[Rfam]
The record is an 80-nucleotide sequence from Camellia sinensis, which matches "Small nucleolar RNA R16" in Rfam. NCBI's taxonomy places the organism under Eukaryota, Streptophyta, Streptophytina, Magnoliopsida, Camellia. Gene Ontology terms of the family: nucleolus and RNA processing. The base pairs follow the family's consensus structure, which was predicted with PFOLD. The match comes from Rfam's covariance-model search (59 bits).

RNA sequence: GAAGGCAUGUGGUGUAAUUAAUCUUAUCCUACACUGAGUUUUAUGUAGACUACAAACUCUGCUUGUUAUCUGAUGUCAUC
Numbered sequence: 001g002a003a004g005g006c007a008u009g010u011g012g013u014g015u016a017a018u019u020a021a022u023c024u025u026a027u028c029c030u031a032c033a034c035u036g037a038g039u040u041u042u043a044u045g046u047a048g049a050c051u052a053c054a055a056a057c058u059c060u061g062c063u064u065g066u067u068a069u070c071u072g073a074u075g076u077c078a079u080c
Stems, first nucleotide, its partner, number of pairs: 004077004